[Rfam]
RNA sequence: GUGUGUCUAUGAUGAUCUAAAAGCAUCGGUGAAUUCUGGAUGAAUGCGCUUGCGCACGAACAGUGUGCAGCUCUGGUGAUAUCCCUGCGUUAUUCAUCUGAGACACGC
Numbered sequence: 001g002u003g004u005g006u007c008u009a010u011g012a013u014g015a016u017c018u019a020a021a022a023g024c025a026u027c028g029g030u031g032a033a034u035u036c037u038g039g040a041u042g043a044a045u046g047c048g049c050u051u052g053c054g055c056a057c058g059a060a061c062a063g064u065g066u067g068c069a070g071c072u073c074u075g076g077u078g079a080u081a082u083c084c085c086u087g088c089g090u091u092a093u094u095c096a097u098c099u100g101a102g103a104c105a106c107g108c
Stems, first nucleotide, its partner, number of pairs: 002107006
Notes: Shown here is a 108-nucleotide RNA sequence from Brachypodium distachyon, a member of the family "Small nucleolar RNA Z188". The match comes from Rfam's covariance-model search (70 bits). The source organism's lineage runs through Eukaryota, Spermatophyta, Poaceae, Stipodae and Brachypodium. The family's consensus secondary structure was predicted with PFOLD.